RNA sequence: GGAUGUGGCUCUGGAGAAUCUCCUUGUUUUUAAGGAGUGCCGAAGGUGUAAAAGGUACGAUGAGCGUUACCUUAAUCUCUCAGGCAAAAGGACAGAGUGCUUUUU
Numbered sequence: 001g002g003a004u005g006u007g008g009c010u011c012u013g014g015a016g017a018a019u020c021u022c023c024u025u026g027u028u029u030u031u032a033a034g035g036a037g038u039g040c041c042g043a044a045g046g047u048g049u050a051a052a053a054g055g056u057a058c059g060a061u062g063a064g065c066g067u068u069a070c071c072u073u074a075a076u077c078u079c080u081c082a083g084g085c086a087a088a089a090g091g092a093c094a095g096a097g098u099g100c101u102u103u104u105u
Base pairs, nucleotide, nucleotide: 008098009097010096011095012094013093020037021036022035023034039085040084041083042081043080046079048077052072
Rfam assigns this 105-nucleotide sequence from Eubacteriaceae bacterium CHKCI005 to the family "Glycine riboswitch aptamer". The pairing is the family consensus, mapped onto this sequence. Taxonomically the source falls in Eubacteriaceae (Bacteria, Bacillati, Bacillota, Eubacteriales).